[Rfam]
RNA sequence: UAGUGAAGGUCCCAGCAGAGGCUUGAUCUGAAAGUAUGAGAGCUCUCUAACACUACACUAUAACCUUCACAUAUGGACUGUGCCAUGUCGUACAAUGCCUGAAUGUUUCUUGAUAUUUCACGGCAUUUCAUACCAUGGCCACAAAUGU
Numbered sequence: 001u002a003g004u005g006a007a008g009g010u011c012c013c014a015g016c017a018g019a020g021g022c023u024u025g026a027u028c029u030g031a032a033a034g035u036a037u038g039a040g041a042g043c044u045c046u047c048u049a050a051c052a053c054u055a056c057a058c059u060a061u062a063a064c065c066u067u068c069a070c071a072u073a074u075g076g077a078c079u080g081u082g083c084c085a086u087g088u089c090g091u092a093c094a095a096u097g098c099c100u101g102a103a104u105g106u107u108u109c110u111u112g113a114u115a116u117u118u119c120a121c122g123g124c125a126u127u128u129c130a131u132a133c134c135a136u137g138g139c140c141a142c143a144a145a146u147g148u
Stems, first nucleotide, its partner, number of pairs: 003070007011020001013018001025047002028040002031037001082139006094127002097124003100120004
Shown here is a 148-nucleotide RNA sequence from Sorghum bicolor, a member of the family "Small nucleolar RNA snoR145". The family's consensus secondary structure was predicted with mfold. The literature on the family includes a 2009 paper in Nucleic Acids Res by Chen and Wu, "Mining small RNA sequencing data: a new approach to identify small nucleolar RNAs in Arabidopsis". The source organism's lineage runs through Eukaryota, Streptophytina, Tracheophyta, Poaceae and Sorghum. Its family is annotated with nucleolus and RNA processing in the Gene Ontology.